[Rfam]
Nucleotides: 427
Stems, first nucleotide, its partner, number of pairs: 024056001025054005035042002066073002077104004087095002107325004114150003119145002122142002125139004156266002158263004163259001165257002168250007176236006186202001188201004205209001212222002275296007302319005359366002382393004
Number, partner (000 for none) and nucleotide at each position: 001000u002000g003000a004000u005000c006000u007000c008000a009000a010000g011000u012000c013000a014000g015000a016000c017000a018000a019000g020000a021000g022000u023000a024056c025054u026053c027052g028051g029050u030000g031000a032000a033000u034000u035042u036041a037000a038000g039000c040000a041036u042035a043000u044000u045000a046000a047000u048000c049000a050029a051028c052027c053026g054025a055000a056024g057000g058000a059000a060000a061000a062000g063000a064000a065000a066073c067072u068000a069000a070000c071000u072067a073066g074000g075000a076000u077104u078103c079102c080101u081000u082000u083000a084000g085000u086000a087095a088094c089000g090000g091000c092000g093000a094088g095087u096000g097000a098000a099000a100000c101080a102079g103078g104077a105000a106000a107325a108324g109323c110322u111000c112000a113000a114150a115149u116148u117000u118000a119145a120144a121000a122142u123141c124000u125139c126138c127137g128136c129000g130000g131000c132000u133000c134000c135000c136128g137127c138126g139125g140000c141123g142122a143000g144120u145119u146000g147000u148116a149115a150114u151000c152000u153000c154000g155000a156266g157265a158263g159262g160261c161260g162000u163259u164000u165257u166256c167000u168250a169249g170248g171247c172246c173245a174244a175000c176236c177235c178234c179233g180232g181231u182000a183000c184000a185000a186202g187000u188201c189200c190199g191198u192000u193000g194000g195000a196000a197000a198191a199190c200189g201188g202186c203000a204000u205209c206000a207000g208000u209205g210000a211000g212222g213221g214000u215000g216000a217000g218000a219000a220000u221213c222212c223000c224000g225000u226000u227000c228000a229000u230000g231181a232180c233179u234178g235177g236176g237000u238000g239000c240000a241000c242000a243000u244174u245173u246172g247171g248170u249169c250168u251000u252000c253000c254000a255000c256166g257165a258000u259163a260161c261160g262159u263158c264000u265157u266156c267000a268000a269000a270000g271000a272000g273000u274000c275296g276295g277294g278293u279292u280291g281290u282000u283000u284000g285000g286000g287000a288000a289000u290281g291280c292279a293278g294277c295276c296275c297000a298000a299000a300000a301000u302319g303318g304317g305316u306315g307000g308000u309000a310000a311000a312000u313000u314000u315306c316305a317304u318303c319302u320000a321000a322110a323109g324108c325107u326000a327000a328000a329000u330000a331000g332000c333000g334000a335000c336000a337000c338000g339000a340000g341000a342000c343000c344000g345000a346000u347000a348000g349000c350000g351000a352000a353000c354000a355000a356000g357000u358000a359366c360365c361000g362000c363000g364000a365360g366359g367000g368000a369000a370000a371000g372000a373000u374000g375000a376000a377000a378000a379000g380000a381000a382393c383392u384391u385390u386000g387000a388000a389000a390385a391384g392383a393382g394000a395000g396000u397000u398000a399000a400000a401000c402000a403000g404000u405000a406000c407000g408000u409000g410000a411000a412000a413000c414000c415000g416000u417000u418000a419000a420000a421000a422000g423000g424000g425000a426000a427000g